[Rfam]
RNA: mir-3492 microRNA precursor family
RNA sequence: AGCCUUCUGUAUCCGUGCUGAGAUUUCGUCACACACUAAACCACAAGGGCUGAUGAGACUUCUACGAUAAGUGAAGUG
Numbered sequence: 001a002g003c004c005u006u007c008u009g010u011a012u013c014c015g016u017g018c019u020g021a022g023a024u025u026u027c028g029u030c031a032c033a034c035a036c037u038a039a040a041c042c043a044c045a046a047g048g049g050c051u052g053a054u055g056a057g058a059c060u061u062c063u064a065c066g067a068u069a070a071g072u073g074a075a076g077u078g
Base pairs, nucleotide, nucleotide: 002077003076005074006073008071010069011068012067013066017062020061021060022059024058025057026056027055028054029053030052